Description
Acido-Lenti-1 RNA: a 46-nucleotide RNA from Kolteria novifilia. The organism belongs to Kolteria, within Bacteria. A search with the family's covariance model found it, with a score of 46 bits.
RNA sequence: CCUGGCACUGACGUACCAGGCUACGUGCUGUCGCCGCUUCGCGGCU
Numbered sequence: 001c002c003u004g005g006c007a008c009u010g011a012c013g014u015a016c017c018a019g020g021c022u023a024c025g026u027g028c029u030g031u032c033g034c035c036g037c038u039u040c041g042c043g044g045c046u
Base pairs, nucleotide, nucleotide: 001020002019003018004017005016007014008013033045034044035043036042037041